[Rfam]
RNA sequence: GCCUUAUCAAGAGCGGUGGAGGGAUAGGCCCGAUGAUACCCGGCAACCAUAUUAUGUAUGGUGCUAAUUCCUACAGAAUCCCGAUUCUGACAGAUGAGGU
Numbered sequence: 001g002c003c004u005u006a007u008c009a010a011g012a013g014c015g016g017u018g019g020a021g022g023g024a025u026a027g028g029c030c031c032g033a034u035g036a037u038a039c040c041c042g043g044c045a046a047c048c049a050u051a052u053u054a055u056g057u058a059u060g061g062u063g064c065u066a067a068u069u070c071c072u073a074c075a076g077a078a079u080c081c082c083g084a085u086u087c088u089g090a091c092a093g094a095u096g097a098g099g100u
Stems, first nucleotide, its partner, number of pairs: 001100008013041001015040003021031003025073004042065004047061002049057003069092001074089006
RNA: SAM riboswitch aptamer (S box leader)